Shown here is an 82-nucleotide RNA sequence from Asbolus verrucosus, a member of the family "mir-2944 microRNA precursor family". The family's consensus secondary structure was predicted with RNAalifold. A search with the family's covariance model found it, with a score of 69 bits.

RNA sequence: AUAUAAUGUAAUUAAGGAACUACAGGUGUGAUGUGUGCUUGUUAAAUAUAUCACAGCCGUAGUUGCCUUACUGCAUUUGUGA
Number, nucleotide and partner (000 for none) at each position: 001a000002u000003a080004u079005a077006a076007u075008g074009u073010a072011a000012u000013u000014a000015a068016g067017g066018a064019a063020c062021u061022a000023c059024a000025g057026g000027u055028g054029u053030g052031a051032u050033g049034u048035g047036u000037g000038c000039u000040u000041g000042u000043u000044a000045a000046a000047u035048a034049u033050a032051u031052c030053a029054c028055a027056g000057c025058c000059g023060u000061a021062g020063u019064u018065g000066c017067c016068u015069u000070a000071c000072u010073g009074c008075a007076u006077u005078u000079g004080u003081g000082a000